[Rfam]
RNA: msiK RNA
RNA sequence: CAACCAUCUCCUUUACUCGGAUCGUCCGGCACGUUCCUGCCGGUGAAGGGACCUGAUC
Numbered sequence: 001c002a003a004c005c006a007u008c009u010c011c012u013u014u015a016c017u018c019g020g021a022u023c024g025u026c027c028g029g030c031a032c033g034u035u036c037c038u039g040c041c042g043g044u045g046a047a048g049g050g051a052c053c054u055g056a057u058c
Stems, first nucleotide, its partner, number of pairs: 009050007026043006